Notes: A member of the RNA family "Glycine riboswitch aptamer" from Tepidicaulis marinus, 112 nucleotides long. The match comes from Rfam's covariance-model search (40 bits).
RNA sequence: CACUCUGGAAAGCAGGCCGCGCCUUUUAAGCUGCGCGUGGGCCUCACCGAAGGAGUAAGCCCGGCGCGCCGCGUGAGCCGGGUCAAAUCUCUCAGGUAGAUGGGACAGAGGG
Numbered sequence: 001c002a003c004u005c006u007g008g009a010a011a012g013c014a015g016g017c018c019g020c021g022c023c024u025u026u027u028a029a030g031c032u033g034c035g036c037g038u039g040g041g042c043c044u045c046a047c048c049g050a051a052g053g054a055g056u057a058a059g060c061c062c063g064g065c066g067c068g069c070c071g072c073g074u075g076a077g078c079c080g081g082g083u084c085a086a087a088u089c090u091c092u093c094a095g096g097u098a099g100a101u102g103g104g105a106c107a108g109a110g111g112g
Stems, first nucleotide, its partner, number of pairs: 001112001003110005014044004046097003049093002053091003059084001
Dot-bracket structure: (.(((((......((((.......................)))).(((((..(((...(........................)....))))).)))........))))).)
The base pairs follow the family's consensus structure.